[Rfam]
The family of this 188-nucleotide sequence from Plesiomonas shigelloides is "Lysine riboswitch aptamer".

RNA sequence: CAGAAAAGUAGAGGUGCGCUGUUUAUCAGUAACUGUCAGGAGGGUGAUGCCAGAGAUUGACAGCGAAAGGAGCCAGCGCCGAAGUCAGAAACGCUAUCGAAGCCUUCUGGCUGGUGCAAUUCUCGAACAGGGCUUGCACUGCCAUAGUCAUAAGUUUGUUUAUUACACUAUGGAGCGCUACUGGUUGG
Dot-bracket structure: ......(((((....((((((.((........(((((((.................))))))).......)).))))))...((((((((..............))))))))(((((((.(((......))).))))))).(((((((..................)))))))....)))))......

Annotation
From the family's description: Riboswitches are metabolite binding domains within certain messenger RNAs that serve as precision sensors for their corresponding targets. The source organism's lineage runs through Bacteria, Pseudomonadota, Gammaproteobacteria, Enterobacteriaceae and Plesiomonas shigelloides.